[Rfam]
RNA sequence: CGCUGUCUUCGGCUUCUUUACAGUGCUGCCUUGUUGCACGUGGAUCAAGCAGCAUUGUACAGGGCUAUGAAGGCGGCG
Numbered sequence: 001c002g003c004u005g006u007c008u009u010c011g012g013c014u015u016c017u018u019u020a021c022a023g024u025g026c027u028g029c030c031u032u033g034u035u036g037c038a039c040g041u042g043g044a045u046c047a048a049g050c051a052g053c054a055u056u057g058u059a060c061a062g063g064g065c066u067a068u069g070a071a072g073g074c075g076g077c078g
Stems, first nucleotide, its partner, number of pairs: 014064004019059010030049004
Dot-bracket structure: .............((((.((((((((((.((((............)))))))))))))).))))..............
Shown here is a 78-nucleotide RNA sequence from Phascolarctos cinereus, a member of the family "mir-103/107 microRNA precursor family". Lineage of the source: Eukaryota > Bilateria > Sarcopterygii > Dipnotetrapodomorpha > Phascolarctos. The match comes from Rfam's covariance-model search (88 bits). This family consists of the mammalian microRNA (miRNA) precursors mir-103 and mir107. Animal miRNAs are transcribed as ~70nt precursors and subsequently processed by the Dicer enzyme to give a ~22nt product. Rfam 15.1 lists 1,982 matches to the family in 645 species.